[Rfam]
IMPDH RNA: a 108-nucleotide sequence. Pairs were carried over by alignment from the consensus structure, which is taken from published work. The sequence is in the family's curated seed alignment.

RNA sequence: UUUUUGGGAUAUCGUGCACAUUUUCUCCUCCUCCGGCUGUUCUCCUUCACAGUCGUGAUCCCUGUGCCGCACAGGCGGUAUCCCGCUUCGUGUGCAAAAAAGCUCGUC
Numbered sequence: 001u002u003u004u005u006g007g008g009a010u011a012u013c014g015u016g017c018a019c020a021u022u023u024u025c026u027c028c029u030c031c032u033c034c035g036g037c038u039g040u041u042c043u044c045c046u047u048c049a050c051a052g053u054c055g056u057g058a059u060c061c062c063u064g065u066g067c068c069g070c071a072c073a074g075g076c077g078g079u080a081u082c083c084c085g086c087u088u089c090g091u092g093u094g095c096a097a098a099a100a101a102g103c104u105c106g107u108c
Base pairs, nucleotide, nucleotide: 007083008082009081010080011079012078013077016067017066018065019064020063024058025057034055035054036053037052038051039050040049069093070092071091072090073088074087075086076085